[Rfam]
RNA: Mammalian CPEB3 ribozyme
Organism: Crocodylus porosus
RNA sequence: AGAGGUCCCAAGUUUGAGGCCACAGCAGAAAUGUUCAUAGCGCAGCCGGUCAGAUUCCACCAAAUCUGCAAAUUCUGUU
Numbered sequence: 001a002g003a004g005g006u007c008c009c010a011a012g013u014u015u016g017a018g019g020c021c022a023c024a025g026c027a028g029a030a031a032u033g034u035u036c037a038u039a040g041c042g043c044a045g046c047c048g049g050u051c052a053g054a055u056u057c058c059a060c061c062a063a064a065u066c067u068g069c070a071a072a073u074u075c076u077g078u079u
Stems, first nucleotide, its partner, number of pairs: 018047003024079007032042002051068006